[Rfam]
RNA sequence: GUGCCAUGAUGUUGAACUGUCAACACAUCAUUCUGAAGAAGAAUUGUGUGGAGAUUUUCUGGAAUUGAGCACC
Numbered sequence: 001g002u003g004c005c006a007u008g009a010u011g012u013u014g015a016a017c018u019g020u021c022a023a024c025a026c027a028u029c030a031u032u033c034u035g036a037a038g039a040a041g042a043a044u045u046g047u048g049u050g051g052a053g054a055u056u057u058u059c060u061g062g063a064a065u066u067g068a069g070c071a072c073c
Stems, first nucleotide, its partner, number of pairs: 001072004